[Rfam]
RNA sequence: CUACGGGGAUGAUAAAAAAAUGAACUCUCUCUCUCUGAUGGAUUAGUGGAGACCUGUACAUUCUGAGUAGC
Dot-bracket structure: ((((..............................................................)))).
Numbered sequence: 001c002u003a004c005g006g007g008g009a010u011g012a013u014a015a016a017a018a019a020a021u022g023a024a025c026u027c028u029c030u031c032u033c034u035c036u037g038a039u040g041g042a043u044u045a046g047u048g049g050a051g052a053c054c055u056g057u058a059c060a061u062u063c064u065g066a067g068u069a070g071c
Stems, first nucleotide, its partner, number of pairs: 001070004
The family of this 71-nucleotide sequence from Phyllostomus discolor is "Small nucleolar RNA SNORD26". NCBI's taxonomy places the organism under Eukaryota, Deuterostomia, Craniata, Sarcopterygii, Phyllostomus. For this family Rfam cites "A mammalian gene with introns instead of exons generating stable RNA products" (Tycowski et al., Nature, 1996). The family's consensus secondary structure was predicted with PFOLD. It scores 73 bits against the family's covariance model. By type it is a C/D-box small nucleolar RNA. Rfam links the family to the GO terms RNA processing and nucleolus.